RNA sequence: ACAGUGCCAAAGCCGCGAGGCCCACUACAUACAGGAUCGCGCCAGCAUCCUCUUUCGUGAGCGGGCUAAGGUCUGAGCGUUCCAGUCCCCCUCGAUAGACUCUCGCAGGGUCCAGCGUUAAUCGCGCUGAGCAGCACACCAGAAAUAUAGCACACAGUUUCAUUGAUCCUAAGAUUCUUUUCACCGAGGGGAGGACGAGACUGUGCGGCGUUGGGAUAUGCUGUGGGGACCGUGCACAUGCAUUGCUGGGGCUGCACAAUAACCUAUCACUGGAACCUGUGCCGUUGAGGCGUCUGGUCUAUGCACUUGGCUGGCGUCGCUGACGCAAGCGCGACGCCGGAGUCCGGCCCUUUGACUGGAUCCAGCAUGAGGGCUUCAUGCAUCCCGGUGCAGGGCAUCUGUUCUUCAGUUCACUUCGUGGCUCGUGGUCAGCGAAACUCGAUUCAGACUACUCUGGUCCUGC
Numbered sequence: 001a002c003a004g005u006g007c008c009a010a011a012g013c014c015g016c017g018a019g020g021c022c023c024a025c026u027a028c029a030u031a032c033a034g035g036a037u038c039g040c041g042c043c044a045g046c047a048u049c050c051u052c053u054u055u056c057g058u059g060a061g062c063g064g065g066c067u068a069a070g071g072u073c074u075g076a077g078c079g080u081u082c083c084a085g086u087c088c089c090c091c092u093c094g095a096u097a098g099a100c101u102c103u104c105g106c107a108g109g110g111u112c113c114a115g116c117g118u119u120a121a122u123c124g125c126g127c128u129g130a131g132c133a134g135c136a137c138a139c140c141a142g143a144a145a146u147a148u149a150g151c152a153c154a155c156a157g158u159u160u161c162a163u164u165g166a167u168c169c170u171a172a173g174a175u176u177c178u179u180u181u182c183a184c185c186g187a188g189g190g191g192a193g194g195a196c197g198a199g200a201c202u203g204u205g206c207g208g209c210g211u212u213g214g215g216a217u218a219u220g221c222u223g224u225g226g227g228g229a230c231c232g233u234g235c236a237c238a239u240g241c242a243u244u245g246c247u248g249g250g251g252c253u254g255c256a257c258a259a260u261a262a263c264c265u266a267u268c269a270c271u272g273g274a275a276c277c278u279g280u281g282c283c284g285u286u287g288a289g290g291c292g293u294c295u296g297g298u299c300u301a302u303g304c305a306c307u308u309g310g311c312u313g314g315c316g317u318c319g320c321u322g323a324c325g326c327a328a329g330c331g332c333g334a335c336g337c338c339g340g341a342g343u344c345c346g347g348c349c350c351u352u353u354g355a356c357u358g359g360a361u362c363c364a365g366c367a368u369g370a371g372g373g374c375u376u377c378a379u380g381c382a383u384c385c386c387g388g389u390g391c392a393g394g395g396c397a398u399c400u401g402u403u404c405u406u407c408a409g410u411u412c413a414c415u416u417c418g419u420g421g422c423u424c425g426u427g428g429u430c431a432g433c434g435a436a437a438c439u440c441g442a443u444u445c446a447g448a449c450u451a452c453u454c455u456g457g458u459c460c461u462g463c
Stems, first nucleotide, its partner, number of pairs: 002462003007457003012422007020062002023059002034050004073447005079230004098112005113129006131224006151210001423435004

The record is a 463-nucleotide RNA sequence from Athelia sp. TMB, which matches "Nuclear RNase P" in Rfam.
Taxonomically the source falls in Athelia (Eukaryota, Dikarya, Agaricomycetidae, Atheliaceae).